[Rfam]
RNA sequence: GAAGUCCCACCUGGGAAAUCCUGAGCCGCGAGCCUAGUAUUGAGCCUUGCGGUUGUAGCUGAUCGCAGAUACAUCGAUGCGUAGGCCAGAUAAGCAGGCGAGAUGCAAAGGUAACAAGUGGAGCCGACCUUGAAGGUGUUGAGCCCCGAAAAUUCCGGUUGGUGCGGUUGGUGAGAGCCGACAGUUUUGACCCGCCGGUAGGCAACAAUCCGUGUCAUGCUCUGGCGAGCGGCACGGGUACUCCCCGAGGUCCUAGGCCG
Numbered sequence: 001g002a003a004g005u006c007c008c009a010c011c012u013g014g015g016a017a018a019u020c021c022u023g024a025g026c027c028g029c030g031a032g033c034c035u036a037g038u039a040u041u042g043a044g045c046c047u048u049g050c051g052g053u054u055g056u057a058g059c060u061g062a063u064c065g066c067a068g069a070u071a072c073a074u075c076g077a078u079g080c081g082u083a084g085g086c087c088a089g090a091u092a093a094g095c096a097g098g099c100g101a102g103a104u105g106c107a108a109a110g111g112u113a114a115c116a117a118g119u120g121g122a123g124c125c126g127a128c129c130u131u132g133a134a135g136g137u138g139u140u141g142a143g144c145c146c147c148g149a150a151a152a153u154u155c156c157g158g159u160u161g162g163u164g165c166g167g168u169u170g171g172u173g174a175g176a177g178c179c180g181a182c183a184g185u186u187u188u189g190a191c192c193c194g195c196c197g198g199u200a201g202g203c204a205a206c207a208a209u210c211c212g213u214g215u216c217a218u219g220c221u222c223u224g225g226c227g228a229g230c231g232g233c234a235c236g237g238g239u240a241c242u243c244c245c246c247g248a249g250g251u252c253c254u255a256g257g258c259c260g
Stems, first nucleotide, its partner, number of pairs: 012036004019031002022028001025226002038092004044086004048081002050076004055072003059068003141252001143251003147247002171245001173243003177203003182197001184195002208239009218229001
Shown here is a 260-nucleotide RNA from Thiohalocapsa sp. PB-PSB1, a member of the family "Group II catalytic intron D1-D4-6". Its family is annotated with Group II intron splicing in the Gene Ontology. Rfam 15.1 lists 1,617 matches to the family in 661 species. The match comes from Rfam's covariance-model search (91 bits). Group II introns are found in rRNA, tRNA and mRNA of organelles in fungi, plants and protists, and also in mRNA in bacteria. The source organism's lineage runs through Bacteria, Pseudomonadati, Pseudomonadota, Chromatiaceae and Thiohalocapsa.